[Rfam]
RNA sequence: GAAGUUUUUAACUUCCCUCAAAGGCUUCCAAUAUUCUAAGCCAUUGUUAACAUCAGAUGCAGGAAUGUUGGGAGUCUUCGAGGGAAAUUGAAGACUG
Numbered sequence: 001g002a003a004g005u006u007u008u009u010a011a012c013u014u015c016c017c018u019c020a021a022a023g024g025c026u027u028c029c030a031a032u033a034u035u036c037u038a039a040g041c042c043a044u045u046g047u048u049a050a051c052a053u054c055a056g057a058u059g060c061a062g063g064a065a066u067g068u069u070g071g072g073a074g075u076c077u078u079c080g081a082g083g084g085a086a087a088u089u090g091a092a093g094a095c096u097g
Base pairs, nucleotide, nucleotide: 003096004095005094006093008091009090010089011088013086014085015084016083017082018081019080021078022077023076024075025074026073027072028071029070030069031068032067033066

The family of this 97-nucleotide sequence from Theobroma cacao is "MIR477 microRNA precursor family". A search with the family's covariance model found it, with a score of 71 bits. The organism belongs to Theobroma, within Eukaryota. The literature on the family includes a 2005 paper in Plant Cell by Lu et al., "Novel and mechanical stress-responsive MicroRNAs in Populus trichocarpa that are absent from Arabidopsis".